[Rfam]
RNA: MicF RNA
RNA sequence: CGCUAUCAUCAUUAACUUUAUUUAUUACCGUCAUUCACUUCUGAAUGUCUGUUUACCCCUAUUUCAACCGGAUGCUUCGCAUUCGGUUUUUUUU
Number, nucleotide and partner (000 for none) at each position: 001c000002g000003c000004u000005a000006u000007c000008a000009u000010c000011a000012u000013u000014a000015a000016c000017u000018u000019u000020a000021u000022u000023u000024a000025u000026u000027a000028c000029c000030g000031u000032c000033a046034u045035u044036c043037a042038c000039u000040u000041c000042u037043g036044a035045a034046u033047g000048u000049c000050u000051g000052u000053u000054u000055a000056c000057c000058c000059c000060u000061a000062u000063u000064u000065c000066a088067a087068c086069c085070g084071g083072a082073u081074g080075c079076u000077u000078c000079g075080c074081a073082u072083u071084c070085g069086g068087u067088u066089u000090u000091u000092u000093u000094u000